[Rfam]
RNA: mir-87 microRNA precursor family
Organism: Aphis gossypii
RNA sequence: CGUUGGCGGGCCUGACUCAUUGCUCAACCUGUGUUAUUCAUACGGUUUAGGUGAGCAAAGUUUCAGGUGUGCCAACGU
Numbered sequence: 001c002g003u004u005g006g007c008g009g010g011c012c013u014g015a016c017u018c019a020u021u022g023c024u025c026a027a028c029c030u031g032u033g034u035u036a037u038u039c040a041u042a043c044g045g046u047u048u049a050g051g052u053g054a055g056c057a058a059a060g061u062u063u064c065a066g067g068u069g070u071g072c073c074a075a076c077g078u
Base pairs, nucleotide, nucleotide: 002076003075004074005073006072007071010068011067012066013065014064015063018060020058021057023055024054025053026052028051029050030049